[Rfam]
Nucleotides: 091
Base pairs, nucleotide, nucleotide: 012037013036018031019030020029021028022027040085041084042083043082045081046080047079048076049075050074055070056069057068058067059066060065
Number, partner (000 for none) and nucleotide at each position: 001000a002000a003000a004000c005000g006000a007000u008000a009000a010000a011000g012037g013036c014000a015000a016000a017000a018031u019030c020029a021028u022027c023000g024000a025000a026000a027022g028021g029020u030019g031018a032000g033000g034000a035000c036013g037012c038000a039000a040085a041084g042083c043082c044000a045081u046080g047079g048076g049075u050074c051000u052000g053000u054000c055070g056069u057068u058067c059066a060065a061000u062000a063000u064000a065060u066059u067058g068057a069056a070055c071000u072000a073000u074050g075049a076048u077000c078000g079047c080046c081045a082043g083042g084041u085040u086000g087000c088000c089000g090000a091000a
Rfam assigns this 91-nucleotide RNA sequence from Bacillus sp. V3-13 to the family "c-di-GMP-I riboswitch aptamer". The match comes from Rfam's covariance-model search (80 bits).